[Rfam]
RNA sequence: UAGUUGCCAUUACUCCGAGCUUAUUCAGCUAAGUCCUGCGGUAGGAUAUGGUGAAUAAGCCAGUGGUUUCGAGCCACAAGGGCAUAGUUGGAAAUGGUUAUGCCUCCCGUGUUUGGAAAGGUGUGACGUGGCGCAACAA
Numbered sequence: 001u002a003g004u005u006g007c008c009a010u011u012a013c014u015c016c017g018a019g020c021u022u023a024u025u026c027a028g029c030u031a032a033g034u035c036c037u038g039c040g041g042u043a044g045g046a047u048a049u050g051g052u053g054a055a056u057a058a059g060c061c062a063g064u065g066g067u068u069u070c071g072a073g074c075c076a077c078a079a080g081g082g083c084a085u086a087g088u089u090g091g092a093a094a095u096g097g098u099u100a101u102g103c104c105u106c107c108c109g110u111g112u113u114u115g116g117a118a119a120g121g122u123g124u125g126a127c128g129u130g131g132c133g134c135a136a137c138a139a
Base pairs, nucleotide, nucleotide: 011125012124013123015121016120019060020059021058022057023056024055025054026053027052029050033047034046035045036044037043038042063077064076065075066074067073080105081104082103083102084101085100086099087098088097089096090095106116107115
Shown here is a 139-nucleotide sequence from Vibrio furnissii, a member of the family "Molybdenum/Tungsten riboswitch aptamer (Moco RNA motif)".